[Rfam]
RNA sequence: GGUUGUUCCCAUGUGCUUGAUCUAACCAUGUGGAUGGCAGGUAUCUAAGGUAACCAUGGUUGUGUCAAGCGCCAUGGAACGACC
Numbered sequence: 001g002g003u004u005g006u007u008c009c010c011a012u013g014u015g016c017u018u019g020a021u022c023u024a025a026c027c028a029u030g031u032g033g034a035u036g037g038c039a040g041g042u043a044u045c046u047a048a049g050g051u052a053a054c055c056a057u058g059g060u061u062g063u064g065u066c067a068a069g070c071g072c073c074a075u076g077g078a079a080c081g082a083c084c
Stems, first nucleotide, its partner, number of pairs: 001084009013072007024061007